RNA: Small nucleolar RNA MBII-202
Organism: Cyprinodon variegatus
RNA sequence: UGAUGACAAAUCUCCGGAAUCUCUGUACCCCUUUGAUGAAACAUUUGAACCCUAUAUCUGAGGACUGCCCUUUAGGUUCAGU
Numbered sequence: 001u002g003a004u005g006a007c008a009a010a011u012c013u014c015c016g017g018a019a020u021c022u023c024u025g026u027a028c029c030c031c032u033u034u035g036a037u038g039a040a041a042c043a044u045u046u047g048a049a050c051c052c053u054a055u056a057u058c059u060g061a062g063g064a065c066u067g068c069c070c071u072u073u074a075g076g077u078u079c080a081g082u
Stems, first nucleotide, its partner, number of pairs: 002082001004080003
Dot-bracket structure: .(.(((.......................................................................))).)